[Rfam]
RNA sequence: GUAUGCCCCAAAGGUGUGGGACUGAGAACACAGGUCCUGUGGCUUGAUUAAUUUUGCUACUUAAUUAUAGCAACUUGUGUUCUCAGGUCACCCCUUUGGGACACCC
Numbered sequence: 001g002u003a004u005g006c007c008c009c010a011a012a013g014g015u016g017u018g019g020g021a022c023u024g025a026g027a028a029c030a031c032a033g034g035u036c037c038u039g040u041g042g043c044u045u046g047a048u049u050a051a052u053u054u055u056g057c058u059a060c061u062u063a064a065u066u067a068u069a070g071c072a073a074c075u076u077g078u079g080u081u082c083u084c085a086g087g088u089c090a091c092c093c094c095u096u097u098g099g100g101a102c103a104c105c106c
Stems, first nucleotide, its partner, number of pairs: 007100002011096004016091004024084010